[Rfam]
RNA sequence: CCGGGUUUCCGUGUCCAACGUUUCACCGUCUGUUUAAUUUUAAAAAAUUAUGAAAAAAAAAUAAAAAGACAAAUCACGCAUAAAGUAUUAAUCAUGUUUUAUCAUCUAACAACAAUAAAAAUACUAAUUAUAAAAAAAAUUUCAUAUAAGACGGACAAUCAAACAUUGGACACCGAAACCUAAGGUUUGUCUUUUU
Numbered sequence: 001c002c003g004g005g006u007u008u009c010c011g012u013g014u015c016c017a018a019c020g021u022u023u024c025a026c027c028g029u030c031u032g033u034u035u036a037a038u039u040u041u042a043a044a045a046a047a048u049u050a051u052g053a054a055a056a057a058a059a060a061a062u063a064a065a066a067a068g069a070c071a072a073a074u075c076a077c078g079c080a081u082a083a084a085g086u087a088u089u090a091a092u093c094a095u096g097u098u099u100u101a102u103c104a105u106c107u108a109a110c111a112a113c114a115a116u117a118a119a120a121a122u123a124c125u126a127a128u129u130a131u132a133a134a135a136a137a138a139a140u141u142u143c144a145u146a147u148a149a150g151a152c153g154g155a156c157a158a159u160c161a162a163a164c165a166u167u168g169g170a171c172a173c174c175g176a177a178a179c180c181u182a183a184g185g186u187u188u189g190u191c192u193u194u195u196u
Base pairs, nucleotide, nucleotide: 014170015169016168017167018166021163022162023161025159028156029155030154031153032152033151034150035149037147038146

Background:
MIR812 microRNA precursor family: a 196-nucleotide RNA sequence from Oryza sativa. The organism belongs to Oryza sativa, within Eukaryota.